[Rfam]
mir-124 microRNA precursor family: a 60-nucleotide RNA from Acyrthosiphon pisum. Rfam links the family to the GO terms miRNA-mediated post-transcriptional gene silencing and RISC complex. Rfam 15.1 lists 2,215 matches to the family in 905 species.

RNA sequence: GCGUUCACUGUUGAGCCUAUAUGUUGUUAAUAUGAAUCAUAAGGCACGCGGUGAAUGCCA
Numbered sequence: 001g002c003g004u005u006c007a008c009u010g011u012u013g014a015g016c017c018u019a020u021a022u023g024u025u026g027u028u029a030a031u032a033u034g035a036a037u038c039a040u041a042a043g044g045c046a047c048g049c050g051g052u053g054a055a056u057g058c059c060a
Stems, first nucleotide, its partner, number of pairs: 001058008010049002016044003020041004